Rfam assigns this 133-nucleotide RNA from Polycladomyces abyssicola to the family "Ribosomal protein L10 leader". About the family: This family is a putative r-protein leader autoregulatory structure found in B. subtilis and other low-GC Gram-positive bacteria.
RNA sequence: AUUGAACACCCGCUUCUACCGUAGACAGCAGGUGCCGCCGGCUUAAUAUCCUGCCGAGGUAGGGAUUCCGAUUCGUAUUGAUAGAGGAUUUUCCCGGCCUUCGUGUGUCUACGAAGGCUUUUUUGUUUGCAAU
Numbered sequence: 001a002u003u004g005a006a007c008a009c010c011c012g013c014u015u016c017u018a019c020c021g022u023a024g025a026c027a028g029c030a031g032g033u034g035c036c037g038c039c040g041g042c043u044u045a046a047u048a049u050c051c052u053g054c055c056g057a058g059g060u061a062g063g064g065a066u067u068c069c070g071a072u073u074c075g076u077a078u079u080g081a082u083a084g085a086g087g088a089u090u091u092u093c094c095c096g097g098c099c100u101u102c103g104u105g106u107g108u109c110u111a112c113g114a115a116g117g118c119u120u121u122u123u124u125g126u127u128u129g130c131a132a133u
Base pairs, nucleotide, nucleotide: 028054029053030052031051032050034042035041036040097118098117099116100115101114102113103112104111105110